Shown here is a 149-nucleotide sequence from Erwinia mallotivora, a member of the family "Leucine operon leader". About the family: At least 6 amino acid operons are known to be regulated by attenuation. In each a leader sequence of 150-200 bp is found upstream of the first gene in the operon. Lineage of the source: Bacteria > Pseudomonadati > Gammaproteobacteria > Enterobacterales > Erwinia. Rfam classes the family as a cis-regulatory leader. A search with the family's covariance model found it, with a score of 95 bits. The base pairs follow the family's consensus structure, which is taken from published work.

RNA sequence: UUAAGGUCUGAUUCAAUGAUUCGUACCACCUACCUCCUCGGUCUACUACUACUAAACGCCUCUUUUGUGCGCGGUAGACUUGUGGGCGGAGUGAAUCACUGAUUCAGGCUUGCAAAGCAAAAAAACCCGCGCCAGUCGCGGGUUUUUUU
Numbered sequence: 001u002u003a004a005g006g007u008c009u010g011a012u013u014c015a016a017u018g019a020u021u022c023g024u025a026c027c028a029c030c031u032a033c034c035u036c037c038u039c040g041g042u043c044u045a046c047u048a049c050u051a052c053u054a055a056a057c058g059c060c061u062c063u064u065u066u067g068u069g070c071g072c073g074g075u076a077g078a079c080u081u082g083u084g085g086g087c088g089g090a091g092u093g094a095a096u097c098a099c100u101g102a103u104u105c106a107g108g109c110u111u112g113c114a115a116a117g118c119a120a121a122a123a124a125a126c127c128c129g130c131g132c133c134a135g136u137c138g139c140g141g142g143u144u145u146u147u148u149u
Stems, first nucleotide, its partner, number of pairs: 004111001006109001008107004013102003017098003026089002029086005049077005057071003122146010